[Rfam]
RNA sequence: UAUUCGCUUUAGGGGUGUUUGCAGUAAUGCAGGCUGAGAUGUUACCCUCUGAACCUGAUCUGGUUAAUACCAGCGUAGGGAAAAGUAAGAUGAAUCCU
Numbered sequence: 001u002a003u004u005c006g007c008u009u010u011a012g013g014g015g016u017g018u019u020u021g022c023a024g025u026a027a028u029g030c031a032g033g034c035u036g037a038g039a040u041g042u043u044a045c046c047c048u049c050u051g052a053a054c055c056u057g058a059u060c061u062g063g064u065u066a067a068u069a070c071c072a073g074c075g076u077a078g079g080g081a082a083a084a085g086u087a088a089g090a091u092g093a094a095u096c097c098u
Stems, first nucleotide, its partner, number of pairs: 006086005011048004017034005054079004060073004
Dot-bracket structure: .....(((((((((..(((((........)))))..........)))).....((((..((((......))))..))))..)))))............
TPP riboswitch aptamer (THI element): a 98-nucleotide RNA from Taibaiella sp. KBW10.
The match comes from Rfam's covariance-model search (73 bits).